[Rfam]
RNA: Fluoride riboswitch aptamer (crcB RNA motif)
RNA sequence: CGGCCACAAGGAGAUGGCAUUCCUCCUACAACCGCCGGCCCCGGCCGACUGAUGAUGCCUACGAGUUC
Numbered sequence: 001c002g003g004c005c006a007c008a009a010g011g012a013g014a015u016g017g018c019a020u021u022c023c024u025c026c027u028a029c030a031a032c033c034g035c036c037g038g039c040c041c042c043g044g045c046c047g048a049c050u051g052a053u054g055a056u057g058c059c060u061a062c063g064a065g066u067u068c
Stems, first nucleotide, its partner, number of pairs: 010026004016059006034049001036047004